RNA sequence: UGUAUAGUGAUGAAACUCAUGCGUGUCAACUGACUCUGGUUUCCCCUGGUGUUCUGUUGCUCCAGUUGGCGUUUUGCUAGCUGGUGUCCUCGGGACAUUAGGGAUCCAGAGGCAUGAUCAUACAUUGUUUCUGAAUACA
Numbered sequence: 001u002g003u004a005u006a007g008u009g010a011u012g013a014a015a016c017u018c019a020u021g022c023g024u025g026u027c028a029a030c031u032g033a034c035u036c037u038g039g040u041u042u043c044c045c046c047u048g049g050u051g052u053u054c055u056g057u058u059g060c061u062c063c064a065g066u067u068g069g070c071g072u073u074u075u076g077c078u079a080g081c082u083g084g085u086g087u088c089c090u091c092g093g094g095a096c097a098u099u100a101g102g103g104a105u106c107c108a109g110a111g112g113c114a115u116g117a118u119c120a121u122a123c124a125u126u127g128u129u130u131c132u133g134a135a136u137a138c139a
Stems, first nucleotide, its partner, number of pairs: 001139004044103009
A member of the RNA family "Small nucleolar RNA SNORD10" from Sphaeramia orbicularis, 139 nucleotides long. Rfam classes the family as a C/D-box small nucleolar RNA. Pairs were carried over by alignment from the consensus structure, which was predicted with WAR. NCBI's taxonomy places the organism under Eukaryota, Vertebrata, Teleostei, Neoteleostei, Sphaeramia.